[Rfam]
RNA sequence: UAUUCGACAUCGAAAAUCCGCACGCGUGUCGACACAUGAAACGGGGUGCCUGUCUGCAAAAUGCAGAUCGGUUGUUUCAUGGGAUGCGCGUAAGCCACAAC
Number, nucleotide and partner (000 for none) at each position: 001u000002a000003u000004u000005c000006g000007a000008c000009a000010u000011c000012g000013a000014a000015a000016a000017u000018c000019c000020g000021c000022a000023c090024g089025c088026g087027u086028g085029u084030c083031g000032a000033c000034a000035c081036a080037u079038g078039a077040a076041a075042c074043g073044g000045g000046g000047u000048g072049c071050c070051u000052g068053u067054c066055u000056g000057c000058a000059a000060a000061a000062u000063g000064c000065a000066g054067a053068u052069c000070g050071g049072u048073u043074g042075u041076u040077u039078c038079a037080u036081g035082g000083g030084a029085u028086g027087c026088g025089c024090g023091u000092a000093a000094g000095c000096c000097a000098c000099a000100a000101c000
The family of this 101-nucleotide RNA from Salinisphaera shabanensis is "t44 RNA". It scores 54 bits against the family's covariance model. About the family: This family consists of a number of bacterial RNA genes of between 135 and 170 bases in length. The t44 gene has been identified in several species of enteric bacteria but homologs have also been identified in Pseudomonas and Coxiella species.